[Rfam]
RNA sequence: GGGGGCGUUAUGGAUUCGACAGGCAUAAUUGAGCUUGAAUUGCGCUUCGUAGGUUACGUCUACGUAAAAACGUUACAGUUAAAUAUAACUGCUAAAAACGAAAACAAUACUUUCGCUUUAGCUGCCUAAAAACAGCAAGUGAAGAUCCUCUCGGCAUCGCCCAUGUGCUCGAGUAAGGGUCCUAAAUGAAGUGGGAUACAUUAAACUUUUCCGUCUGUAAAGUUUAAAAGAGAUUAUCAGACUAGCGACAUCCAAGGCCUGUUGUGCGGCAUAGGGUGAAGCGAAAUUUAAGUAGUACAACUAUAAGCGUAGAGGUUUAAGUGGCAAUGUGUUUGGACGCGGGUUCAAAUCCCGCCGCUUCCAUUA
Numbered sequence: 001g002g003g004g005g006c007g008u009u010a011u012g013g014a015u016u017c018g019a020c021a022g023g024c025a026u027a028a029u030u031g032a033g034c035u036u037g038a039a040u041u042g043c044g045c046u047u048c049g050u051a052g053g054u055u056a057c058g059u060c061u062a063c064g065u066a067a068a069a070a071c072g073u074u075a076c077a078g079u080u081a082a083a084u085a086u087a088a089c090u091g092c093u094a095a096a097a098a099c100g101a102a103a104a105c106a107a108u109a110c111u112u113u114c115g116c117u118u119u120a121g122c123u124g125c126c127u128a129a130a131a132a133c134a135g136c137a138a139g140u141g142a143a144g145a146u147c148c149u150c151u152c153g154g155c156a157u158c159g160c161c162c163a164u165g166u167g168c169u170c171g172a173g174u175a176a177g178g179g180u181c182c183u184a185a186a187u188g189a190a191g192u193g194g195g196a197u198a199c200a201u202u203a204a205a206c207u208u209u210u211c212c213g214u215c216u217g218u219a220a221a222g223u224u225u226a227a228a229a230g231a232g233a234u235u236a237u238c239a240g241a242c243u244a245g246c247g248a249c250a251u252c253c254a255a256g257g258c259c260u261g262u263u264g265u266g267c268g269g270c271a272u273a274g275g276g277u278g279a280a281g282c283g284a285a286a287u288u289u290a291a292g293u294a295g296u297a298c299a300a301c302u303a304u305a306a307g308c309g310u311a312g313a314g315g316u317u318u319a320a321g322u323g324g325c326a327a328u329g330u331g332u333u334u335g336g337a338c339g340c341g342g343g344u345u346c347a348a349a350u351c352c353c354g355c356c357g358c359u360u361c362c363a364u365u366a
Stems, first nucleotide, its partner, number of pairs: 001362007020335008029326001033322009043309005048064005053076002056073004118139002121136004144181005150173004154168004160195005201227009213243001216240001245282002249278005257270003261301004265295001339355005